Shown here is a 155-nucleotide RNA from Streptomyces sp. ISL-66, a member of the family "Streptomyces sRNA scr5239".
By type it is a small RNA.
Lineage of the source: Bacteria > Bacillati > Actinomycetota > Actinomycetes > Streptomyces.
The literature on the family includes a 2015 paper in PLoS One by Vockenhuber et al., "Identification of metE as a second target of the sRNA scr5239 in Streptomyces coelicolor".
[Rfam]
RNA sequence: CUUCCGCCCUCCCCGCACAGGAGGACGGAUCGAGGUAAGCCGCGCGCUCUGCCCUGACCGCGCGGGACCUCCCCCGGCCGUCGGGCACCGCACACCCGUCGGCCGUAAGUACUCCGGACUACGGUGCCGGUCGGGCUGAGGGUCCUGCCCGGCAC
Dot-bracket structure: ..((((.(((((.......))))).))))..(((((...(((.((.(........)...)).))).)))))...((((((...((..........))..))))))....((((..(...)..))))..((.((((........))))))......
Numbered sequence: 001c002u003u004c005c006g007c008c009c010u011c012c013c014c015g016c017a018c019a020g021g022a023g024g025a026c027g028g029a030u031c032g033a034g035g036u037a038a039g040c041c042g043c044g045c046g047c048u049c050u051g052c053c054c055u056g057a058c059c060g061c062g063c064g065g066g067a068c069c070u071c072c073c074c075c076g077g078c079c080g081u082c083g084g085g086c087a088c089c090g091c092a093c094a095c096c097c098g099u100c101g102g103c104c105g106u107a108a109g110u111a112c113u114c115c116g117g118a119c120u121a122c123g124g125u126g127c128c129g130g131u132c133g134g135g136c137u138g139a140g141g142g143u144c145c146u147g148c149c150c151g152g153c154a155c
Stems, first nucleotide, its partner, number of pairs: 003029004008024005032071005040065003044061002047056001075105006084097002110126004116120001129149002132147004